Shown here is a 114-nucleotide RNA from Xenopus tropicalis, a member of the family "Potassium channel RNA editing signal".
RNA sequence: CUGGGAUAUGGGGAUAUGUACCCUCAGACUUGGUCAGGGAUGUUGGUAGGUGCAUUGUGCGCUUUGGCUGGUGUACUUACAAUAGCAAUGCCUGUUCCGGUCAUUGUUAACAAC
Number, nucleotide and partner (000 for none) at each position: 001c000002u113003g000004g111005g000006a000007u000008a107009u106010g105011g104012g000013g102014a101015u100016a000017u000018g097019u000020a095021c094022c000023c000024u000025c000026a000027g000028a000029c000030u000031u000032g000033g000034u000035c000036a000037g077038g076039g000040a074041u000042g000043u000044u000045g000046g000047u000048a000049g063050g062051u061052g000053c000054a000055u000056u000057g000058u000059g000060c000061g051062c050063u049064u000065u000066g000067g000068c000069u000070g000071g000072u000073g000074u040075a000076c038077u037078u000079a000080c000081a000082a000083u000084a000085g000086c000087a000088a000089u000090g000091c000092c000093u000094g021095u020096u000097c018098c000099g000100g015101u014102c013103a000104u011105u010106g009107u008108u000109a000110a000111c004112a000113a002114c000
Taxonomically the source falls in Silurana (Eukaryota, Sarcopterygii, Batrachia, Pipidae). It is annotated as a cis-regulatory element.